[Rfam]
RNA sequence: ACUGAUCCAUGAUGAUCACUUACACAAUGUGACUGCUGGAUGAAGCUUGCGGAUAUGGGACUGAGAUCAGGU
Numbered sequence: 001a002c003u004g005a006u007c008c009a010u011g012a013u014g015a016u017c018a019c020u021u022a023c024a025c026a027a028u029g030u031g032a033c034u035g036c037u038g039g040a041u042g043a044a045g046c047u048u049g050c051g052g053a054u055a056u057g058g059g060a061c062u063g064a065g066a067u068c069a070g071g072u
Stems, first nucleotide, its partner, number of pairs: 002070004
Dot-bracket structure: .((((.............................................................))))..
The record is a 72-nucleotide RNA sequence from Stegastes partitus, which matches "Small nucleolar RNA SNORD99" in Rfam. A search with the family's covariance model found it, with a score of 68 bits. Rfam classes the family as a C/D-box small nucleolar RNA. A reference for the family is Galardi et al. (2002), "Purified box C/D snoRNPs are able to reproduce site-specific 2'-O-methylation of target RNA in vitro", Mol Cell Biol.